[Rfam]
RNA sequence: UGGCUACGAAAAGAGUUUUAAUUUUAAAAAGAGACCGCUGAGUUUGCGGUCUCAGGCGACAGGCACAUUACGGAGAGAAACUAUGUUUGAA
Numbered sequence: 001u002g003g004c005u006a007c008g009a010a011a012a013g014a015g016u017u018u019u020a021a022u023u024u025u026a027a028a029a030a031g032a033g034a035c036c037g038c039u040g041a042g043u044u045u046g047c048g049g050u051c052u053c054a055g056g057c058g059a060c061a062g063g064c065a066c067a068u069u070a071c072g073g074a075g076a077g078a079a080a081c082u083a084u085g086u087u088u089g090a091a
Base pairs, nucleotide, nucleotide: 001065002064004062005061007058008057013053014052015051017049018048020044021043022042023041071089072088073087074086076084
RNA: Plasmid-encoded Shigella sRNA A